[Rfam]
The family of this 197-nucleotide RNA sequence from Wenjunlia vitaminophila is "Actinobacteria sRNA Ms_IGR-5".

RNA sequence: ACACAAGAAGGGAGGUGGUCCGGAGAAUGAUCGACUGUCGGACGCGUGAGGUGGCCGCCAGCUAGCCGCCCCGCUCGCAGCGCGGUGCGCGGCGGGCUAAUCCCAAGCAGCUACCCGACCCGCGGGCUCGCCGGUACGUCCGUCCGGCGCCUGGUUCCGGCCCAGCCGACCAGGAAGCAGCCCGCGGGUUGUCCAUU
Number, nucleotide and partner (000 for none) at each position: 001a000002c000003a000004c000005a000006a000007g000008a000009a000010g000011g000012g000013a000014g059015g058016u057017g056018g055019u054020c000021c000022g000023g000024a000025g000026a000027a000028u000029g000030a000031u000032c000033g000034a000035c000036u000037g000038u000039c000040g000041g000042a000043c000044g000045c000046g000047u000048g000049a000050g000051g000052u000053g000054g019055c018056c017057g016058c015059c014060a098061g097062c096063u095064a000065g093066c092067c000068g090069c089070c000071c087072c084073g083074c082075u000076c000077g000078c000079a000080g000081c000082g074083c073084g072085g000086u000087g071088c000089g069090c068091g000092g066093c065094g000095g063096g062097c061098u060099a000100a000101u000102c000103c000104c000105a000106a000107g000108c000109a000110g000111c000112u000113a000114c000115c000116c191117g190118a189119c188120c187121c186122g185123c184124g183125g182126g181127c180128u179129c000130g148131c147132c146133g145134g144135u000136a000137c000138g000139u000140c000141c000142g000143u000144c134145c133146g132147g131148c130149g000150c000151c000152u000153g000154g000155u000156u000157c000158c000159g000160g000161c000162c000163c000164a000165g000166c000167c000168g000169a000170c000171c000172a000173g000174g000175a000176a000177g000178c000179a128180g127181c126182c125183c124184g123185c122186g121187g120188g119189u118190u117191g116192u000193c000194c000195a000196u000197u000